[Rfam]
A member of the RNA family "Archaeal large subunit ribosomal RNA" from Halorutilus salinus, 247 nucleotides of a longer RNA.
The organism belongs to Halorutilus, within Archaea.
RNA sequence: GGAGCCUGACGGGAAGUUGCUAUCAGUACGAGAGGAACAUAGCAACGGCGCCACUGGUGUAUCGGUUGUCCGACAGGGCACUGCCGAGCAGCUACGCGCCACGGGUUAACGGCUGAAAGCAUCUAAGCCGGAAACCUACCUGAAAAAGAGGCUCCACUGAGGCGGCUCGUACAAGACGAGUUAGAUAGAGACGGGAUGUAAUCUCGAAGGCAACGACGAGUUCAGUCCGCGUCCACUAAACGCCAAG
Numbered sequence: 001g002g003a004g005c006c007u008g009a010c011g012g013g014a015a016g017u018u019g020c021u022a023u024c025a026g027u028a029c030g031a032g033a034g035g036a037a038c039a040u041a042g043c044a045a046c047g048g049c050g051c052c053a054c055u056g057g058u059g060u061a062u063c064g065g066u067u068g069u070c071c072g073a074c075a076g077g078g079c080a081c082u083g084c085c086g087a088g089c090a091g092c093u094a095c096g097c098g099c100c101a102c103g104g105g106u107u108a109a110c111g112g113c114u115g116a117a118a119g120c121a122u123c124u125a126a127g128c129c130g131g132a133a134a135c136c137u138a139c140c141u142g143a144a145a146a147a148g149a150g151g152c153u154c155c156a157c158u159g160a161g162g163c164g165g166c167u168c169g170u171a172c173a174a175g176a177c178g179a180g181u182u183a184g185a186u187a188g189a190g191a192c193g194g195g196a197u198g199u200a201a202u203c204u205c206g207a208a209g210g211c212a213a214c215g216a217c218g219a220g221u222u223c224a225g226u227c228c229g230c231g232u233c234c235a236c237u238a239a240a241c242g243c244c245a246a247g
Stems, first nucleotide, its partner, number of pairs: 001155007010142004016046008047100005055094003062087005067080005103137003110130005161244004165181005186238003190233004194228003203220004209214001